Source information: Group II catalytic intron D1-D4-1: an 87-nucleotide RNA sequence from Paenibacillus sp. OAS669.
[Rfam]
RNA sequence: UAACCGCAGCUGAGAAGCUGCGCUGAAUCCGCAGGAGUCAGCAGAGGCCAUAGUACGGGAGUACGGGACGCCGGAAACCGGAAGGGC
Numbered sequence: 001u002a003a004c005c006g007c008a009g010c011u012g013a014g015a016a017g018c019u020g021c022g023c024u025g026a027a028u029c030c031g032c033a034g035g036a037g038u039c040a041g042c043a044g045a046g047g048c049c050a051u052a053g054u055a056c057g058g059g060a061g062u063a064c065g066g067g068a069c070g071c072c073g074g075a076a077a078c079c080g081g082a083a084g085g086g087c
Stems, first nucleotide, its partner, number of pairs: 001025002005022007038045002047087003056080003064074001